A member of the RNA family "T-box leader" from Bacillus thuringiensis, 245 nucleotides long. Rfam describes the family as follows. Uncharged tRNA acts as the effector for transcription antitermination of genes in the T-box leader family. It is one of the family's seed sequences. It is annotated as a cis-regulatory leader. Pairs were carried over by alignment from the consensus structure, which is taken from published work.
RNA sequence: AUGAAAUCGUUUAAGUAAGAAGAGUACGUAUAUUGGAGACGUUACAGAGAGCCGGGGAUAGGUGGGAGCCCGGUGCGGUGCUAUAUACGGAAUGGGCUUACGAGAGGUAUGCUGAACAAUUAUUUUCAGUAGGCAACCCGGGUUCCGCCGUUACAAGGAUAAGGUAUAUAUUUUGUACCUGAAUAAAGCGGGAUGCUUUUGCGUCCAACAUGAGGUGGUACCACGGUAAAUUUAUCGUCCUCUAC
Dot-bracket structure: ......((.......((((.......((((((.......(((........((((((............)))))))))......)))))).......))))...)).((.((((..................)))))).(((......)))........................................((((((....)))))).....((((.......(((((......)))))))))...